[Rfam]
The family of this 94-nucleotide RNA sequence from Lathyrus oleraceus is "Small nucleolar RNA R64/Z200 family". Its family is annotated with nucleolus and RNA processing in the Gene Ontology. The source organism's lineage runs through Eukaryota, eudicotyledons, Fabaceae, Fabeae and Lathyrus. Rfam classes the family as a C/D-box small nucleolar RNA.

RNA sequence: UUUUUGCUAUGAUGAUUUAAGAAGAAAUUCACAUGUCAGACUUCAGAGAUUUUCAUAAUCAAUGAGAAUGACAAUUCGAUUCACUGAGCAGAAA
Numbered sequence: 001u002u003u004u005u006g007c008u009a010u011g012a013u014g015a016u017u018u019a020a021g022a023a024g025a026a027a028u029u030c031a032c033a034u035g036u037c038a039g040a041c042u043u044c045a046g047a048g049a050u051u052u053u054c055a056u057a058a059u060c061a062a063u064g065a066g067a068a069u070g071a072c073a074a075u076u077c078g079a080u081u082c083a084c085u086g087a088g089c090a091g092a093a094a
Stems, first nucleotide, its partner, number of pairs: 001094007048060004